[Rfam]
Source information: The record is an 84-nucleotide sequence from Oceanospirillum sediminis, which matches "sRNA-Xcc1" in Rfam. By type it is a small RNA. A reference for the family is Schmidtke et al. (2011), "Genome-wide transcriptome analysis of the plant pathogen Xanthomonas identifies sRNAs with putative virulence functions", Nucleic Acids Res. The family's consensus secondary structure was predicted with RNAalifold.
RNA sequence: GCCGGGAGGGCAGUGAAUAAAACACCUUUCGAGGAAAUAAGCUCGCGGUACUUUGGGCCGUUUCGAACCUCCUGGCACCCACGU
Numbered sequence: 001g002c003c004g005g006g007a008g009g010g011c012a013g014u015g016a017a018u019a020a021a022a023c024a025c026c027u028u029u030c031g032a033g034g035a036a037a038u039a040a041g042c043u044c045g046c047g048g049u050a051c052u053u054u055g056g057g058c059c060g061u062u063u064c065g066a067a068c069c070u071c072c073u074g075g076c077a078c079c080c081a082c083g084u
Stems, first nucleotide, its partner, number of pairs: 001076009012043003016038001025034003045061005